[Rfam]
RNA sequence: AAACAUUCUCAGGGCAGGGUGAAAUCCCCUACCGGUGGUAAGUGCAUCAUGCAUAAGCCCACGAGCGGUUAACCACAUCAUAAAGUGACGGUUAAUGACAAGCAGAUUUGGUGAAAAUCCAAAGCCGACAGUUACAGUCUGGAUGAAAGAGAAGAAAA
Numbered sequence: 001a002a003a004c005a006u007u008c009u010c011a012g013g014g015c016a017g018g019g020u021g022a023a024a025u026c027c028c029c030u031a032c033c034g035g036u037g038g039u040a041a042g043u044g045c046a047u048c049a050u051g052c053a054u055a056a057g058c059c060c061a062c063g064a065g066c067g068g069u070u071a072a073c074c075a076c077a078u079c080a081u082a083a084a085g086u087g088a089c090g091g092u093u094a095a096u097g098a099c100a101a102g103c104a105g106a107u108u109u110g111g112u113g114a115a116a117a118u119c120c121a122a123a124g125c126c127g128a129c130a131g132u133u134a135c136a137g138u139c140u141g142g143a144u145g146a147a148a149g150a151g152a153a154g155a156a157a158a
Stems, first nucleotide, its partner, number of pairs: 006153005017029003031138002033127002035062004057125002065103002107123005129141003
RNA: FMN riboswitch aptamer (RFN element)
Organism: Cricetibacter osteomyelitidis